Mason-Pfizer monkey virus packaging signal: a 267-nucleotide RNA sequence from Molossus molossus. Pairs were carried over by alignment from the consensus structure, which was predicted with PFOLD. A search with the family's covariance model found it, with a score of 108 bits. It is annotated as a cis-regulatory element. A reference for the family is Harrison et al. (1995), "Secondary structure model of the Mason-Pfizer monkey virus 5' leader sequence: identification of a structural motif common to a variety of retroviruses", J Virol. Rfam's curators write: This family represents a group of sequences that are related to the Mason-Pfizer monkey virus (MPMV) packaging signal. The packaging signal is located in the 5' UTR and is required for specific RNA encapsidation.
RNA sequence: UGGCACCCAACGUGGGACUCCAGCACGGGGGAUCCAGUGAAGGACGCCGUUCUAGUGGCUGGCAGAAAGGAAAAGAAAAGAGGGAACGACGUGGGAACCUGCUACGUCUGCACCCCUCGGGUAAGCGAACGGCGAUUAUGGGUCAAGCAUGGAGCCAAGAUAAGAUGUUCGUUGAAGGACUAGGAAAGGCUAUCAAGGCAUGAGGAGUAAAGAUAAAAAUUAAGCAUUUGUGUCAGUAUUUUGAUUAUAUUAAAGAAGUUUUCCCUU
Dot-bracket structure: .....(((...(((.........)))..))).......(.......)................................(((((..(..(((((.......)))))...)..)).)))........((.(..((....)).)))......((.(((...............................)))..))......(((((.((..((((...........))))......)).)))))........((.(.(....).).))